RNA sequence: ACUGGAAGGUGCUGACACCAGUUGUGGGCAAAACAAAUGUUUUGUCCACCGUUGCACUCUUCCUAGAGUAAAGUGGAGGUCUCUGUCUGCUUUAGGAGAGCCAACCAAACCAGAUCGUUCCCCUCCGUACACA
Numbered sequence: 001a002c003u004g005g006a007a008g009g010u011g012c013u014g015a016c017a018c019c020a021g022u023u024g025u026g027g028g029c030a031a032a033a034c035a036a037a038u039g040u041u042u043u044g045u046c047c048a049c050c051g052u053u054g055c056a057c058u059c060u061u062c063c064u065a066g067a068g069u070a071a072a073g074u075g076g077a078g079g080u081c082u083c084u085g086u087c088u089g090c091u092u093u094a095g096g097a098g099a100g101c102c103a104a105c106c107a108a109a110c111c112a113g114a115u116c117g118u119u120c121c122c123c124u125c126c127g128u129a130c131a132c133a
Stems, first nucleotide, its partner, number of pairs: 004063003008058005024049006032041003075126005083117001085115003089111001091109003095105001
The family of this 133-nucleotide sequence from Eurypyga helias is "Small Cajal body specific RNA 3". The family has 23 seed sequences and 642 matches in Rfam 15.1. Rfam classes the family as a small Cajal body RNA. The base pairs follow the family's consensus structure, which was predicted with RNAalifold. Rfam describes the family as follows. scaRNAs are a specific class of small nuclear RNAs which localise to the Cajal bodies and guide the modification of RNA polymerase II transcribed spliceosomal RNAs U1, U2, U4, U5 and U12.